[Rfam]
RNA: Small nucleolar RNA SNORD83
Organism: Centropus unirufus
RNA sequence: GCCAAAUGAUGUGAACUGGAUGGCAUUAGCACGCUGUGCAAAGAUGACCUUGAUCUAUCACCCUACUCUGAUGGCU
Numbered sequence: 001g002c003c004a005a006a007u008g009a010u011g012u013g014a015a016c017u018g019g020a021u022g023g024c025a026u027u028a029g030c031a032c033g034c035u036g037u038g039c040a041a042a043g044a045u046g047a048c049c050u051u052g053a054u055c056u057a058u059c060a061c062c063c064u065a066c067u068c069u070g071a072u073g074g075c076u
Stems, first nucleotide, its partner, number of pairs: 001075004029039004